[Rfam]
RNA sequence: UCUAGAACUCAAGAUAUGAACUAAAAACCGAACAGUGUCUGAGCUGCAGGACAGAUUCCGACUUCUCCGUUGUUGCUAAGAUUUGAACUUGAAAACGGCAGAAUUGAGUCUUGGACUGCAAAGUUUUAGGUCUAUGGCUUAGCUUUCCAUC
Number, nucleotide and partner (000 for none) at each position: 001u000002c000003u149004a000005g147006a146007a145008c142009u141010c000011a140012a139013g138014a000015u136016a135017u134018g133019a000020a131021c129022u128023a127024a126025a125026a000027a124028c123029c000030g000031a000032a000033c000034a000035g000036u120037g119038u000039c000040u000041g000042a000043g117044c000045u115046g000047c000048a112049g111050g110051a109052c108053a000054g105055a104056u103057u102058c101059c000060g099061a000062c098063u097064u000065c000066u000067c000068c000069g000070u000071u000072g088073u087074u086075g000076c000077u000078a000079a000080g000081a000082u000083u000084u000085g000086a074087a073088c072089u000090u000091g000092a000093a000094a000095a000096c000097g063098g062099c060100a000101g058102a057103a056104u055105u054106g000107a000108g052109u051110c050111u049112u048113g000114g000115a045116c000117u043118g000119c037120a036121a000122a000123g028124u027125u025126u024127u023128a022129g021130g000131u020132c000133u018134a017135u016136g015137g000138c013139u012140u011141a009142g008143c000144u000145u007146u006147c005148c000149a003150u000151c000
Background
Rfam assigns this 151-nucleotide RNA sequence from Populus trichocarpa to the family "MIR2912 microRNA precursor family". Rfam 15.1 lists 15,051 matches to the family in 15 species. The source organism's lineage runs through Eukaryota, Mesangiospermae, Gunneridae, rosids and Populus.